[Rfam]
RNA sequence: UAUAGCGAGCGAAAAAACACAGUCCGGUUGGUAGUCCGGAUGCACCCUUAAACAGGGUGUCGUAUCCUUCCCCCCUUAGGGAUGUCCGUCGCUUGCAUUAUUAAA
Numbered sequence: 001u002a003u004a005g006c007g008a009g010c011g012a013a014a015a016a017a018c019a020c021a022g023u024c025c026g027g028u029u030g031g032u033a034g035u036c037c038g039g040a041u042g043c044a045c046c047c048u049u050a051a052a053c054a055g056g057g058u059g060u061c062g063u064a065u066c067c068u069u070c071c072c073c074c075c076u077u078a079g080g081g082a083u084g085u086c087c088g089u090c091g092c093u094u095g096c097a098u099u100a101u102u103a104a105a
Stems, first nucleotide, its partner, number of pairs: 005096007022041006042060006069082004
RNA: azaaromatic riboswitch aptamer (yjdF RNA)